[Rfam]
NiCo (Nickel/Cobalt) riboswitch aptamer: an 87-nucleotide RNA sequence from Anaerocolumna xylanovorans. The match comes from Rfam's covariance-model search (45 bits). Its family is annotated with cobalt ion binding and metal ion homeostasis in the Gene Ontology. The source organism's lineage runs through Bacteria, Bacillati, Clostridia, Lachnospirales and Anaerocolumna xylanovorans.

RNA sequence: GCGGUAUGUAUGAACAGACAGUGUAUCUGGUAUACAUGUGGUCGGGUCUCUUAAAGGGACAAUGGAGAUACAAUCCAUGGGACAAUU
Number, nucleotide and partner (000 for none) at each position: 001g000002c000003g000004g000005u000006a000007u000008g000009u000010a086011u084012g083013a000014a000015c081016a000017g043018a042019c041020a000021g037022u036023g035024u034025a033026u032027c000028u000029g000030g000031u000032a026033u025034a024035c023036a022037u021038g000039u000040g000041g019042u018043c017044g000045g000046g060047u059048c058049u057050c056051u000052u000053a000054a000055a000056g050057g049058g048059a047060c046061a000062a078063u077064g076065g075066a074067g000068a000069u000070a000071c000072a000073a000074u066075c065076c064077a063078u062079g000080g000081g015082a000083c012084a011085a000086u010087u000